Rfam assigns this 49-nucleotide RNA from Poseidonocella sedimentorum to the family "SAM/SAH riboswitch aptamer". On this family, see Weickhmann et al., Nucleic Acids Res 2019: "The structure of the SAM/SAH-binding riboswitch". NCBI's taxonomy places the organism under Bacteria, Pseudomonadati, Pseudomonadota, Rhodobacterales, Poseidonocella. The match comes from Rfam's covariance-model search (63 bits).
[Rfam]
RNA sequence: ACACCGUCACAACGGCUUCCUGACGUGGCGGAUUACACAUAUUGGAGCA
Numbered sequence: 001a002c003a004c005c006g007u008c009a010c011a012a013c014g015g016c017u018u019c020c021u022g023a024c025g026u027g028g029c030g031g032a033u034u035a036c037a038c039a040u041a042u043u044g045g046a047g048c049a
Base pairs, nucleotide, nucleotide: 004031005030006029007028008027009026010025013022014021015048016047017046019045020044